[Rfam]
RNA: Small nucleolar RNA snoR109
Nucleotides: 094
Base pairs, nucleotide, nucleotide: 031087032086033085034084035083036082037081042075043074044073046071047070048069049068050066051065052064053063
Number, partner (000 for none) and nucleotide at each position: 001000c002000u003000a004000c005000u006000a007000u008000a009000g010000c011000u012000a013000a014000a015000u016000c017000a018000a019000a020000u021000c022000a023000a024000a025000u026000g027000g028000c029000u030000u031087a032086g033085a034084a035083g036082u037081u038000a039000a040000c041000u042075a043074g044073u045000c046071g047070g048069u049068u050066u051065u052064c053063g054000u055000u056000a057000u058000a059000c060000a061000g062000c063053c064052g065051a066050a067000u068049a069048a070047u071046c072000u073044g074043c075042u076000u077000a078000c079000u080000u081037a082036a083035c084034u085033u086032c087031u088000u089000a090000c091000a092000a093000u094000u